U2 spliceosomal RNA: a 191-nucleotide sequence from Oryctes borbonicus. By type it is a spliceosomal small nuclear RNA. About the family: U2 is a small nuclear RNA (snRNA) component of the spliceosome (involved in pre-mRNA splicing). On this family, see Zwieb, Nucleic Acids Res 1997: "The uRNA database". The family has 208 seed sequences and 71,512 matches in Rfam 15.1.

RNA sequence: AUCGCUUCUCGGCCUAUGGCUAAGAUCAAAGUGUAGUAUCUGUUCUUAUCAGCUUAAUAUCUGAUACGCUCCGCAUGCGGAGCCAGUAUAUUAAACUGAUUUUUGGGAAUUGACAGGAGUCAGGGGCUUGCUCCGUUUCUGUCGCGGGUUGGCCUUGUAUUGCAGUACUGCCAAGGAUCGGCCCACAUAAU
Numbered sequence: 001a002u003c004g005c006u007u008c009u010c011g012g013c014c015u016a017u018g019g020c021u022a023a024g025a026u027c028a029a030a031g032u033g034u035a036g037u038a039u040c041u042g043u044u045c046u047u048a049u050c051a052g053c054u055u056a057a058u059a060u061c062u063g064a065u066a067c068g069c070u071c072c073g074c075a076u077g078c079g080g081a082g083c084c085a086g087u088a089u090a091u092u093a094a095a096c097u098g099a100u101u102u103u104u105g106g107g108a109a110u111u112g113a114c115a116g117g118a119g120u121c122a123g124g125g126g127c128u129u130g131c132u133c134c135g136u137u138u139c140u141g142u143c144g145c146g147g148g149u150u151g152g153c154c155u156u157g158u159a160u161u162g163c164a165g166u167a168c169u170g171c172c173a174a175g176g177a178u179c180g181g182c183c184c185a186c187a188u189a190a191u
Stems, first nucleotide, its partner, number of pairs: 007025003011021004047066006068083006112143008123134004146184006153176005